Overview: The record is a 76-nucleotide sequence from Scleropages formosus, which matches "Small nucleolar RNA SNORD72" in Rfam. A reference for the family is Huttenhofer et al. (2001), "RNomics: an experimental approach that identifies 201 candidates for novel, small, non-messenger RNAs in mouse", EMBO J. Pairs were carried over by alignment from the consensus structure. snoRNA HBII-240 belongs to the CD family of snoRNAs. It is the human orthologue of the mouse MBII-240 and is predicted to guide 2'O-ribose methylation of the large 28S rRNA at residue U4590. The match comes from Rfam's covariance-model search (67 bits).
[Rfam]
RNA sequence: UGCUUACCAAUGAUGGCAUAAUAAAUGUCUGAACAAAUGAUAUCAGUGUGAUAUUAAGAUUUGACUGAGGUAAGCU
Numbered sequence: 001u002g003c004u005u006a007c008c009a010a011u012g013a014u015g016g017c018a019u020a021a022u023a024a025a026u027g028u029c030u031g032a033a034c035a036a037a038u039g040a041u042a043u044c045a046g047u048g049u050g051a052u053a054u055u056a057a058g059a060u061u062u063g064a065c066u067g068a069g070g071u072a073a074g075c076u
Stems, first nucleotide, its partner, number of pairs: 002075007